RNA sequence: UACUUAUCAAGAGAGGCGGAGGGACUGACCCGAUGAAGCCCGGCAACCUGUUUAAGUAAGGGAAUUGUGUUCAUGCAUAAUUCUCCUUAUGAUAACAAGGUGCUAAUUUCAGCAGAGUACAGUGUACUCUGGCAGAUAAGUU
Numbered sequence: 001u002a003c004u005u006a007u008c009a010a011g012a013g014a015g016g017c018g019g020a021g022g023g024a025c026u027g028a029c030c031c032g033a034u035g036a037a038g039c040c041c042g043g044c045a046a047c048c049u050g051u052u053u054a055a056g057u058a059a060g061g062g063a064a065u066u067g068u069g070u071u072c073a074u075g076c077a078u079a080a081u082u083c084u085c086c087u088u089a090u091g092a093u094a095a096c097a098a099g100g101u102g103c104u105a106a107u108u109u110c111a112g113c114a115g116a117g118u119a120c121a122g123u124g125u126a127c128u129c130u131g132g133c134a135g136a137u138a139a140g141u142u
Base pairs, nucleotide, nucleotide: 002141003140004139005138006137007136008135013041015040016039017038021031022030023029025112026111027110028109042104043103044102045101047100048099049097050096051095052094108134113131114130115129116128117127118126
Dot-bracket structure: .(((((((....(.(((...(((.[[[[)))......))))((((.((((((.........................................)))).))))))...(]]]]((((((.......))))))..)))))))).